[Rfam]
RNA sequence: UAAGGUCUGGACCUGGCAUACAGUGUAGGAUUCUGUGUGGGUGAGUCUACAGCUACAUUGUCUGCUGGGUUUCAGGUGCUGCUC
Numbered sequence: 001u002a003a004g005g006u007c008u009g010g011a012c013c014u015g016g017c018a019u020a021c022a023g024u025g026u027a028g029g030a031u032u033c034u035g036u037g038u039g040g041g042u043g044a045g046u047c048u049a050c051a052g053c054u055a056c057a058u059u060g061u062c063u064g065c066u067g068g069g070u071u072u073c074a075g076g077u078g079c080u081g082c083u084c
Stems, first nucleotide, its partner, number of pairs: 013068006020061009033052004